Notes:
Small nucleolar RNA snoR136: a 139-nucleotide RNA from Lupinus angustifolius. The match comes from Rfam's covariance-model search (84 bits). The base pairs follow the family's consensus structure, which was predicted with mfold. Gene Ontology terms of the family: RNA processing and nucleolus. On this family, see Chen and Wu, Nucleic Acids Res 2009: "Mining small RNA sequencing data: a new approach to identify small nucleolar RNAs in Arabidopsis".

[Rfam]
RNA sequence: AAGGCUUCAAAUUUUAUGAGGUUUUGCUUGCACUUAUGUCAUUGUGUUUUGUAACAUUAUUUUGAAGCCAAUAAGUGUGUUCCCCUCGCUAUCCAAUGCUGCAAUAUGUGUGGCAUUAGGACGUUGGGGAACAAAAUUU
Numbered sequence: 001a002a003g004g005c006u007u008c009a010a011a012u013u014u015u016a017u018g019a020g021g022u023u024u025u026g027c028u029u030g031c032a033c034u035u036a037u038g039u040c041a042u043u044g045u046g047u048u049u050u051g052u053a054a055c056a057u058u059a060u061u062u063u064g065a066a067g068c069c070a071a072u073a074a075g076u077g078u079g080u081u082c083c084c085c086u087c088g089c090u091a092u093c094c095a096a097u098g099c100u101g102c103a104a105u106a107u108g109u110g111u112g113g114c115a116u117u118a119g120g121a122c123g124u125u126g127g128g129g130a131a132c133a134a135a136a137u138u139u
Base pairs, nucleotide, nucleotide: 001072003069004068005067008064009063010062011061014059017056018055024054025053026052027051032047033046079132080131081130082129083128084127085126087123088122092121093120094119096117101111102110103109